[Rfam]
A member of the RNA family "TPP riboswitch aptamer (THI element)" from Brevirhabdus pacifica, 103 nucleotides long.
Rfam links the family to the GO term thiamine pyrophosphate binding.
Taxonomically the source falls in Brevirhabdus (Bacteria, Pseudomonadati, Pseudomonadota, Alphaproteobacteria).
From the family's description: Vitamin B(1) in its active form thiamin pyrophosphate (TPP) is an essential coenzyme that is synthesised by coupling of pyrimidine and thiazole moieties in bacteria.

RNA sequence: AGCAUACCGUUGGGGUGCCCCGUUCGCCGGGGCUGAGAGGCAAGGCCAACCCAUUGAACCUGAUCCGGGCAGUACCGGCGUAGGGAACGGUGCAGGGCCCAGG
Numbered sequence: 001a002g003c004a005u006a007c008c009g010u011u012g013g014g015g016u017g018c019c020c021c022g023u024u025c026g027c028c029g030g031g032g033c034u035g036a037g038a039g040g041c042a043a044g045g046c047c048a049a050c051c052c053a054u055u056g057a058a059c060c061u062g063a064u065c066c067g068g069g070c071a072g073u074a075c076c077g078g079c080g081u082a083g084g085g086a087a088c089g090g091u092g093c094a095g096g097g098c099c100c101a102g103g
Base pairs, nucleotide, nucleotide: 006091007090008089009088010087011053012052013051014050017033018032019031020030021029040046041045059084060083061082062081065078066077067076068075